Rfam assigns this 174-nucleotide RNA from Mycobacterium talmoniae to the family "Actinobacteria sRNA Ms_IGR-5". The family's RNA type in Rfam is small RNA. It scores 164 bits against the family's covariance model. The base pairs follow the family's consensus structure.
RNA sequence: ACACAGGGAAGGAGGUGGUCCGCGAAAUUGAGUACGUUCUGGACAUGUGAGGUGGCUGUCCGCUAAGCAGCGCCAGGGAAUCACCCGCGCGCGCUGGCGAAUUCCCGGCAGUCACCCGACCCCCGAGCCUCCGGUCUUGUCCAACCAGGAACUACGGCUCGGGGGUCGCGCCAU
Numbered sequence: 001a002c003a004c005a006g007g008g009a010a011g012g013a014g015g016u017g018g019u020c021c022g023c024g025a026a027a028u029u030g031a032g033u034a035c036g037u038u039c040u041g042g043a044c045a046u047g048u049g050a051g052g053u054g055g056c057u058g059u060c061c062g063c064u065a066a067g068c069a070g071c072g073c074c075a076g077g078g079a080a081u082c083a084c085c086c087g088c089g090c091g092c093g094c095u096g097g098c099g100a101a102u103u104c105c106c107g108g109c110a111g112u113c114a115c116c117c118g119a120c121c122c123c124c125g126a127g128c129c130u131c132c133g134g135u136c137u138u139g140u141c142c143a144a145c146c147a148g149g150a151a152c153u154a155c156g157g158c159u160c161g162g163g164g165g166u167c168g169c170g171c172c173a174u
Stems, first nucleotide, its partner, number of pairs: 014060006061099005067094002070092004076086002117168013130149002133146003